[Rfam]
RNA sequence: CCUUGACAGCCGCAUUUCGCGUCUGACUUAACCCACGACAAGGAGAUCAAAAUG
Numbered sequence: 001c002c003u004u005g006a007c008a009g010c011c012g013c014a015u016u017u018c019g020c021g022u023c024u025g026a027c028u029u030a031a032c033c034c035a036c037g038a039c040a041a042g043g044a045g046a047u048c049a050a051a052a053u054g
Base pairs, nucleotide, nucleotide: 002042003041004040005039007025008024009023011021
Shown here is a 54-nucleotide RNA, a member of the family "Mu-gpT-DE RNA".
The sequence is in the family's curated seed alignment.
The family's consensus secondary structure is taken from published work.